[Rfam]
RNA sequence: AGAGCCUUUAAUCCAGUCCCGUGAGGCUGGCAAGGUUGCGGAAUUCAUCAGGUAGUAGUUUAUUUGAUCUGCUUCUUGUCCAGCUCUGGGGCAAGAAGCUUUUUUU
Numbered sequence: 001a002g003a004g005c006c007u008u009u010a011a012u013c014c015a016g017u018c019c020c021g022u023g024a025g026g027c028u029g030g031c032a033a034g035g036u037u038g039c040g041g042a043a044u045u046c047a048u049c050a051g052g053u054a055g056u057a058g059u060u061u062a063u064u065u066g067a068u069c070u071g072c073u074u075c076u077u078g079u080c081c082a083g084c085u086c087u088g089g090g091g092c093a094a095g096a097a098g099c100u101u102u103u104u105u106u
Stems, first nucleotide, its partner, number of pairs: 003037006013030006047068009071099011
Dot-bracket structure: ..((((((....((((((......)))))).)))))).........(((((((((....)))))))))..(((((((((((.......))))))))))).......

Shown here is a 106-nucleotide RNA from Seinonella peptonophila, a member of the family "PyrR binding site".
Pairs were carried over by alignment from the consensus structure, which is taken from published work.
It is annotated as a cis-regulatory element.
The source organism's lineage runs through Bacteria, Bacillati, Bacilli, Caryophanales and Seinonella.
A search with the family's covariance model found it, with a score of 64 bits.